[Rfam]
RNA sequence: AUUUAAUAUUUGCUUAAUUCUGAAAUUCAGAGAAGCGGGGGAACCAAUUAAAUGGGGUGAAUCCAUAUGGUAGGGCAAGCCCUUUUGCCCGAAUCCGACAGCUAACCUCGUAAGCACUAAAGGGGAAGUAA
Numbered sequence: 001a002u003u004u005a006a007u008a009u010u011u012g013c014u015u016a017a018u019u020c021u022g023a024a025a026u027u028c029a030g031a032g033a034a035g036c037g038g039g040g041g042a043a044c045c046a047a048u049u050a051a052a053u054g055g056g057g058u059g060a061a062u063c064c065a066u067a068u069g070g071u072a073g074g075g076c077a078a079g080c081c082c083u084u085u086u087g088c089c090c091g092a093a094u095c096c097g098a099c100a101g102c103u104a105a106c107c108u109c110g111u112a113a114g115c116a117c118u119a120a121a122g123g124g125g126a127a128g129u130a131a
Stems, first nucleotide, its partner, number of pairs: 011116004018034003035111006045054002055096003063070002073090004
Shown here is a 131-nucleotide RNA from Sporanaerobacter sp. PP17-6a, a member of the family "c-di-AMP riboswitch aptamer (ydaO/yuaA leader)". Rfam describes the family as follows. This family represents a conserved RNA structure found upstream of the ydaO and yuaA genes in Bacillus subtilis and related genes in other bacteria. NCBI's taxonomy places the organism under Bacteria, Bacillota, Tissierellia, Sporanaerobacteraceae, Sporanaerobacter.